Shown here is an 80-nucleotide RNA from Jaculus jaculus, a member of the family "Small nucleolar RNA SNORD115". A search with the family's covariance model found it, with a score of 93 bits. NCBI's taxonomy places the organism under Eukaryota, Vertebrata, Gnathostomata, Teleostomi, Jaculus. Its family is annotated with nucleolus and RNA processing in the Gene Ontology. The family's RNA type in Rfam is C/D-box small nucleolar RNA. A reference for the family is Cavaille et al. (2000), "Identification of brain-specific and imprinted small nucleolar RNA genes exhibiting an unusual genomic organization", Proc Natl Acad Sci U S A.

RNA sequence: GGGUCAAUGAUGACAAUCUUCCUGUCAUGAAGAGAGAUGAUGACAUAAAAAUCAUGCUCAAUAGGAUUACGCUGAAGCCC
Numbered sequence: 001g002g003g004u005c006a007a008u009g010a011u012g013a014c015a016a017u018c019u020u021c022c023u024g025u026c027a028u029g030a031a032g033a034g035a036g037a038u039g040a041u042g043a044c045a046u047a048a049a050a051a052u053c054a055u056g057c058u059c060a061a062u063a064g065g066a067u068u069a070c071g072c073u074g075a076a077g078c079c080c
Stems, first nucleotide, its partner, number of pairs: 001080004005074002008071002